[Rfam]
RNA sequence: GGCAGGCAUGCGCCGGAGUAAGCCCGAGUUGCUUUCGAGCAGCAGCAUCCAGUGGAUGUGCAUCAGGGUCCGGGGGCCUGCCACAUU
Dot-bracket structure: (((((((...(.((((.....((((..((((((....))))))..((((.....)))).......))))))))).))))))).....
Source information
Shown here is an 87-nucleotide RNA from Sphingobium sp. YR768, a member of the family "DUF3800-VII RNA". The family's consensus secondary structure is taken from published work. It is annotated as a small RNA.